A member of the RNA family "Purine riboswitch aptamer" from Paenibacillus sp. 598K, 100 nucleotides long. Rfam describes the family as follows. Riboswitches are metabolite binding domains within certain messenger RNAs that serve as precision sensors for their corresponding targets. The source organism's lineage runs through Bacteria, Bacillati, Bacilli, Paenibacillaceae and Paenibacillus.

[Rfam]
RNA sequence: UAACAAAAAAGCAUAUCUUUUCGUAUAAUUCCGGGGAUCGGCCCGGAAGUCUCUACGAGGUCACCGUAAUGAUCUGGCUACGAAAAGCGGCAAUGGACGU
Numbered sequence: 001u002a003a004c005a006a007a008a009a010a011g012c013a014u015a016u017c018u019u020u021u022c023g024u025a026u027a028a029u030u031c032c033g034g035g036g037a038u039c040g041g042c043c044c045g046g047a048a049g050u051c052u053c054u055a056c057g058a059g060g061u062c063a064c065c066g067u068a069a070u071g072a073u074c075u076g077g078c079u080a081c082g083a084a085a086a087g088c089g090g091c092a093a094u095g096g097a098c099g100u
Base pairs, nucleotide, nucleotide: 018086019085020084021083022082023081024080025079029048030047031046032045033044034043035042058075059074060073061072062071063070